[Rfam]
RNA sequence: UUACAAUUAAAGGAUAUUUCUCGUGGCUGUAAUAAAACGGAAAUGUCUCUUAAUUGUUUGAU
Dot-bracket structure: ..((((((((.((((((((((..((.......))....)))))))))).)))))))).....
Numbered sequence: 001u002u003a004c005a006a007u008u009a010a011a012g013g014a015u016a017u018u019u020c021u022c023g024u025g026g027c028u029g030u031a032a033u034a035a036a037a038c039g040g041a042a043a044u045g046u047c048u049c050u051u052a053a054u055u056g057u058u059u060g061a062u
Stems, first nucleotide, its partner, number of pairs: 003057008012048010024034002